[Rfam]
RNA sequence: AUACCACUUGGGAAUGAAGUUCUCCCUUGGAUAACCAGAACCGCUUAUUAGCUGAUGACUUCUGUAAUUAA
Numbered sequence: 001a002u003a004c005c006a007c008u009u010g011g012g013a014a015u016g017a018a019g020u021u022c023u024c025c026c027u028u029g030g031a032u033a034a035c036c037a038g039a040a041c042c043g044c045u046u047a048u049u050a051g052c053u054g055a056u057g058a059c060u061u062c063u064g065u066a067a068u069u070a071a
Stems, first nucleotide, its partner, number of pairs: 010026004016062006043052003

Annotation
Rfam assigns this 71-nucleotide sequence from Eubacterium sp. CAG:603 to the family "Fluoride riboswitch aptamer (crcB RNA motif)". Its family is annotated with response to fluoride and positive regulation of gene expression in the Gene Ontology. Lineage of the source: Bacteria > Clostridia > Eubacteriales > Eubacteriaceae > Eubacterium.